The record is an 84-nucleotide sequence from Burhinus bistriatus, which matches "Small nucleolar RNA SNORD72" in Rfam. NCBI's taxonomy places the organism under Eukaryota, Vertebrata, Sauropsida, Neognathae, Burhinus. Rfam classes the family as a C/D-box small nucleolar RNA. Pairs were carried over by alignment from the consensus structure. From the family's description: snoRNA HBII-240 belongs to the CD family of snoRNAs. It is the human orthologue of the mouse MBII-240 and is predicted to guide 2'O-ribose methylation of the large 28S rRNA at residue U4590. A reference for the family is Huttenhofer et al. (2001), "RNomics: an experimental approach that identifies 201 candidates for novel, small, non-messenger RNAs in mouse", EMBO J. It scores 48 bits against the family's covariance model.
RNA sequence: CACUUGUUAGUAAGAUGUUUCUUACUAAAAAAUGUCUGACCAUACGAACUCCAUAGUGAUUUCGGUGCAUUACCGAGAUGAGCU
Numbered sequence: 001c002a003c004u005u006g007u008u009a010g011u012a013a014g015a016u017g018u019u020u021c022u023u024a025c026u027a028a029a030a031a032a033u034g035u036c037u038g039a040c041c042a043u044a045c046g047a048a049c050u051c052c053a054u055a056g057u058g059a060u061u062u063c064g065g066u067g068c069a070u071u072a073c074c075g076a077g078a079u080g081a082g083c084u
Base pairs, nucleotide, nucleotide: 003082004081005080006079007078008077